[Rfam]
Rfam assigns this 65-nucleotide RNA to the family "Cyano-1 RNA".
Nucleotides: 065
Stems, first nucleotide, its partner, number of pairs: 018060005026052004030047003
Number, partner (000 for none) and nucleotide at each position: 001000c002000g003000g004000u005000a006000u007000g008000u009000g010000a011000g012000g013000a014000g015000u016000u017000g018060a019059g020058a021057u022056c023000c024000u025000c026052c027051g028050u029049a030047g031046u032045g033000g034000a035000a036000a037000c038000a039000a040000g041000g042000a043000a044000a045032c046031a047030c048000u049029u050028a051027c052026g053000c054000c055000u056022g057021a058020u059019c060018u061000c062000a063000c064000g065000a
Description
Rfam 15.1 lists 283 matches to the family in 194 species.